[Rfam]
RNA: Nematode sRNA ceN72-3_ceN74-2
Organism: Ancylostoma ceylanicum
RNA sequence: CGCUGUGGUCCGGAGUCAGUGGGUUAUCCUCACUUUGCGUUCCCUGAAAAGGGAAGUGCCCGCAAGGGCACAUCUCCCCAUUGGCGAUCACUUGACCACACU
Numbered sequence: 001c002g003c004u005g006u007g008g009u010c011c012g013g014a015g016u017c018a019g020u021g022g023g024u025u026a027u028c029c030u031c032a033c034u035u036u037g038c039g040u041u042c043c044c045u046g047a048a049a050a051g052g053g054a055a056g057u058g059c060c061c062g063c064a065a066g067g068g069c070a071c072a073u074c075u076c077c078c079c080a081u082u083g084g085c086g087a088u089c090a091c092u093u094g095a096c097c098a099c100a101c102u
Stems, first nucleotide, its partner, number of pairs: 002102001004100001006098005012088001015085009041053003056071006